[Rfam]
RNA sequence: UUAGAUAAGAACUCUCUCACUCCAGCCAGAGCCACCAACUCAGGGCUGGAAAGUAAAAAACCGACGCAAAGUCGGUUUUUUUAC
Numbered sequence: 001u002u003a004g005a006u007a008a009g010a011a012c013u014c015u016c017u018c019a020c021u022c023c024a025g026c027c028a029g030a031g032c033c034a035c036c037a038a039c040u041c042a043g044g045g046c047u048g049g050a051a052a053g054u055a056a057a058a059a060a061c062c063g064a065c066g067c068a069a070a071g072u073c074g075g076u077u078u079u080u081u082u083a084c
Base pairs, nucleotide, nucleotide: 021050022049023048024047025046026045027044029041030040031039055081056080057079058078059077060076061075062074063073064072065071
RNA: ArsR-gov region gene B